Shown here is a 108-nucleotide RNA from Olea europaea, a member of the family "Small nucleolar RNA snoR97". Pairs were carried over by alignment from the consensus structure, which was predicted with WAR. Its family is annotated with RNA processing and nucleolus in the Gene Ontology. The source organism's lineage runs through Eukaryota, Viridiplantae, Magnoliopsida, Pentapetalae and Olea europaea. For this family Rfam cites "Experimental RNomics: identification of 140 candidates for small non-messenger RNAs in the plant Arabidopsis thaliana" (Marker et al., Curr Biol, 2002). It scores 41 bits against the family's covariance model.
RNA sequence: AAUAAAUACUUGGCUUAAGGUCUUAAGAGUACAAAUUGUUGUGUUGUCCACCAGCUUCAUGUCUGUAAACUUCCCACAAAAAUGGAGUUAAAUAACCGCACCACGUGU
Numbered sequence: 001a002a003u004a005a006a007u008a009c010u011u012g013g014c015u016u017a018a019g020g021u022c023u024u025a026a027g028a029g030u031a032c033a034a035a036u037u038g039u040u041g042u043g044u045u046g047u048c049c050a051c052c053a054g055c056u057u058c059a060u061g062u063c064u065g066u067a068a069a070c071u072u073c074c075c076a077c078a079a080a081a082a083u084g085g086a087g088u089u090a091a092a093u094a095a096c097c098g099c100a101c102c103a104c105g106u107g108u
Base pairs, nucleotide, nucleotide: 041101042100043099044098046096053089054088055087056086057085058084060081062079